About this RNA:
Shown here is an 82-nucleotide RNA from Ramlibacter tataouinensis, a member of the family "SucA RNA motif". The family's RNA type in Rfam is cis-regulatory element. The source organism's lineage runs through Bacteria, Pseudomonadati, Pseudomonadota, Burkholderiales and Ramlibacter. On this family, see Weinberg et al., Nucleic Acids Res 2007: "Identification of 22 candidate structured RNAs in bacteria using the CMfinder comparative genomics pipeline". It scores 73 bits against the family's covariance model.

[Rfam]
RNA sequence: UCGCAUCCGCCAUCCGGUUCAGCCGUGUCGCGGAAGGUUUUUCAACCAGCCCAAGCCUCCUCCAGGGAGGCGGAGAGUAGCG
Numbered sequence: 001u002c003g004c005a006u007c008c009g010c011c012a013u014c015c016g017g018u019u020c021a022g023c024c025g026u027g028u029c030g031c032g033g034a035a036g037g038u039u040u041u042u043c044a045a046c047c048a049g050c051c052c053a054a055g056c057c058u059c060c061u062c063c064a065g066g067g068a069g070g071c072g073g074a075g076a077g078u079a080g081c082g
Stems, first nucleotide, its partner, number of pairs: 002082003006034005015025004036047004048078001051075001055071007